This 97-nucleotide RNA belongs to the Rfam family "skipping-rope RNA". The sequence is in the family's curated seed alignment. The base pairs follow the family's consensus structure, which is taken from published work.
RNA sequence: ACUAUUUGAGGUGGAAGAAUUCGUACGAUCCACACGCCGAUGGUAAUGACAGGGGAAACCCGAGAGAUGCAGGAGAAGCGUACGCCUGCCAAAUAGU
Numbered sequence: 001a002c003u004a005u006u007u008g009a010g011g012u013g014g015a016a017g018a019a020u021u022c023g024u025a026c027g028a029u030c031c032a033c034a035c036g037c038c039g040a041u042g043g044u045a046a047u048g049a050c051a052g053g054g055g056a057a058a059c060c061c062g063a064g065a066g067a068u069g070c071a072g073g074a075g076a077a078g079c080g081u082a083c084g085c086c087u088g089c090c091a092a093a094u095a096g097u
Stems, first nucleotide, its partner, number of pairs: 001097008011033005023083005035064001037055002069089005